[Rfam]
RNA: U11 spliceosomal RNA
Organism: Solanum commersonii
Nucleotides: 136
Base pairs, nucleotide, nucleotide: 008078009077010076011075012074014028015027016026017025029049030048031047032046033045034044035043036042050073051072052071053070054069055068097134098133099132102130103129105127106126109124110123111122
Number, partner (000 for none) and nucleotide at each position: 001000a002000a003000a004000a005000a006000g007000g008078g009077u010076u011075g012074g013000u014028u015027g016026g017025c018000u019000a020000a021000a022000u023000a024000u025017g026016c027015c028014a029049c030048u031047c032046u033045u034044g035043c036042c037000u038000g039000u040000g041000u042036g043035g044034u045033g046032a047031g048030a049029g050073u051072u052071g053070u054069a055068u056000a057000a058000c059000u060000a061000u062000c063000a064000a065000g066000a067000c068055a069054u070053a071052u072051g073050g074012c075011c076010a077009a078008c079000a080000u081000c082000c083000u084000u085000u086000a087000u088000c089000c090000a091000a092000a093000a094000a095000u096000a097134a098133a099132a100000a101000a102130g103129a104000c105127a106126a107000c108000a109124a110123a111122a112000c113000a114000c115000u116000a117000g118000g119000u120000g121000a122111u123110u124109u125000c126106u127105u128000c129103u130102c131000a132099u133098u134097u135000g136000u